[Rfam]
RNA sequence: ACUAUGGAGUGUUAUAUAAAGCUGUAGUAGCUAUAGGCAAGACAGAACACGUUGAAAUAGUAA
Numbered sequence: 001a002c003u004a005u006g007g008a009g010u011g012u013u014a015u016a017u018a019a020a021g022c023u024g025u026a027g028u029a030g031c032u033a034u035a036g037g038c039a040a041g042a043c044a045g046a047a048c049a050c051g052u053u054g055a056a057a058u059a060g061u062a063a
Base pairs, nucleotide, nucleotide: 001061002060003059004058005057009050010049011048012047013046022045023044024043030038031037032036
Shown here is a 63-nucleotide RNA from Clostridium saccharobutylicum, a member of the family "RAGATH-18 RNA".
It is annotated as a small RNA.